[Rfam]
Rfam assigns this 54-nucleotide sequence from Carassius auratus to the family "UnaL2 LINE 3' element". Rfam's curators write: The eel long interspersed element (LINE) UnaL2 and its partner short interspersed element (SINE) share a conserved 3' tail containing a stem-loop that is critical for their retrotransposition. By type it is a cis-regulatory element. It scores 56 bits against the family's covariance model.
RNA sequence: GCUGUCCUAAUUUGUUAGUCGCUUUGGAUAAAAGCGUCUGCUAAAUGACUAAUG
Numbered sequence: 001g002c003u004g005u006c007c008u009a010a011u012u013u014g015u016u017a018g019u020c021g022c023u024u025u026g027g028a029u030a031a032a033a034g035c036g037u038c039u040g041c042u043a044a045a046u047g048a049c050u051a052a053u054g
Stems, first nucleotide, its partner, number of pairs: 013043001014041002020036006
Dot-bracket structure: ............(((....((((((.....))))))...)).)...........